[Rfam]
RNA sequence: CCUAACAACAUUUUAACCCCUCAUAUAAUAAUGGGAAUAUGGCCCAUGAGUCUCUACCCGGGAACCGUAAAUACUCGGACUAUGAGGGAAAGCUUCUUGUUU
Number, nucleotide and partner (000 for none) at each position: 001c000002c000003u000004a000005a000006c000007a000008a000009c000010a000011u000012u000013u000014u000015a000016a000017c000018c088019c087020c086021u085022c084023a083024u082025a081026u000027a000028a000029u049030a000031a047032u046033g045034g044035g043036a000037a000038u000039a000040u000041g000042g000043c035044c034045c033046a032047u031048g000049a029050g000051u000052c000053u000054c000055u000056a000057c000058c078059c077060g076061g075062g074063a000064a072065c000066c000067g000068u000069a000070a000071a000072u064073a000074c062075u061076c060077g059078g058079a000080c000081u025082a024083u023084g022085a021086g020087g019088g018089a000090a000091a000092g000093c000094u000095u000096c000097u000098u000099g000100u000101u000102u000
Rfam assigns this 102-nucleotide RNA sequence from Cytobacillus kochii to the family "Purine riboswitch aptamer". Taxonomically the source falls in Cytobacillus (Bacteria, Bacilli, Caryophanales, Bacillaceae). It scores 87 bits against the family's covariance model.